Shown here is a 426-nucleotide RNA sequence from Natronomonas moolapensis, a member of the family "Archaeal RNase P". The literature on the family includes a 1999 paper in Nucleic Acids Res by Brown, "The Ribonuclease P Database". Rfam classes the family as a ribozyme. Its family is annotated with tRNA processing, multimeric ribonuclease P complex and ribonuclease P activity in the Gene Ontology.
[Rfam]
RNA sequence: GGCAGAGGAAGCCCGGUUCCCGUGGGCGCGGCGACGCCGCGCCCAUGAGGAAAGUCCCCCCACCCUCCGGGCAGGUGACCGGACGCAAGUCCGGGGCGGGAGACCGCCGGCGCUGGAACAGAAACGGAACCCCCCGCCCCGACCGAUGAGGCGCGUUCGGCCGUGCAAACGGCCGACGGCGUUCGCGGGAUCGCCCGCGAACGCGCGAACCGACCCGCAAGGGAAGGGAGUUAACCCGCCGAGGGCCGGGCGGUCGUCACCGACGGCCGCCACGCGCGAACGGCGUGAGCCGCGAGCCGACGGGCGGGAACGGAUGGAACGGCGAAUCCUCACCGGUGCAAGUCCGCCGCAAUUGGUAGCCCGGAGGCGCGGCGGACGCUCAGCCGAAUGCCGGGCCGAACAGAAGGGGGCUUACUCUCCUCAGCC
Dot-bracket structure: (((.(((((((((((((...(((((((((((.....)))))))))))....[[[.[[[[[((((.[[[[[[..((((((((((......)))))(((((....)))))((...(.(.............((.(((((((..................................................................................................................................................................)))))))...)).........).)..)))))))))))...(((((((((.........]]]]]]...)))))))))............))))))..........]]]]]]]].)).))))).)))